A member of the RNA family "M-box riboswitch aptamer (ykoK leader)" from Clostridium senegalense, 166 nucleotides long. Rfam 15.1 lists 1,095 matches to the family in 932 species.

[Rfam]
RNA sequence: UAAUUAUCUUGUUAGGUGAGGUUACUGUAUGAAAAUACGCCACUGCCCAGAAAUGUCCAGAGACGCCAAUGGGUUAGCAGAUACUAUCGAAUUAAGGUUUUAUCUAAUGUGGCUGAGAAGAACUCUACGUCUUACAGAGCUAAAACUCAACGUAUUAAGGGAAAUU
Numbered sequence: 001u002a003a004u005u006a007u008c009u010u011g012u013u014a015g016g017u018g019a020g021g022u023u024a025c026u027g028u029a030u031g032a033a034a035a036u037a038c039g040c041c042a043c044u045g046c047c048c049a050g051a052a053a054u055g056u057c058c059a060g061a062g063a064c065g066c067c068a069a070u071g072g073g074u075u076a077g078c079a080g081a082u083a084c085u086a087u088c089g090a091a092u093u094a095a096g097g098u099u100u101u102a103u104c105u106a107a108u109g110u111g112g113c114u115g116a117g118a119a120g121a122a123c124u125c126u127a128c129g130u131c132u133u134a135c136a137g138a139g140c141u142a143a144a145a146c147u148c149a150a151c152g153u154a155u156u157a158a159g160g161g162a163a164a165u166u
Stems, first nucleotide, its partner, number of pairs: 005162001007160004011151002013095001015147003020141003025137005031131002039113005045074005054065004080104004086098003115125003
The base pairs follow the family's consensus structure. The match comes from Rfam's covariance-model search (146 bits).